mraW RNA: a 96-nucleotide RNA from Cellulomonas chitinilytica.
The base pairs follow the family's consensus structure, which is taken from published work.
Rfam 15.1 lists 851 matches to the family in 821 species.
The family's RNA type in Rfam is cis-regulatory element.
[Rfam]
RNA sequence: GCACUUCCGCCCGACGAGACCUCCCCCCGUCCUUCCUGACGCACUUCCCCGGCGUCAGAGGGUCGGUGGGGGAUCUGGUCGGACGGCGGAGGGGCC
Numbered sequence: 001g002c003a004c005u006u007c008c009g010c011c012c013g014a015c016g017a018g019a020c021c022u023c024c025c026c027c028c029g030u031c032c033u034u035c036c037u038g039a040c041g042c043a044c045u046u047c048c049c050c051g052g053c054g055u056c057a058g059a060g061g062g063u064c065g066g067u068g069g070g071g072g073a074u075c076u077g078g079u080c081g082g083a084c085g086g087c088g089g090a091g092g093g094g095c096c
Base pairs, nucleotide, nucleotide: 011082012081013080014079015078018075019074021072022071023070024069025068027066028065029064031062032061033060034059036058037057038056039055040054041053042052
Dot-bracket structure: ..........(((((..((.(((((.(((.((((.(((((((.........))))))))))).))).))))).))..)))))..............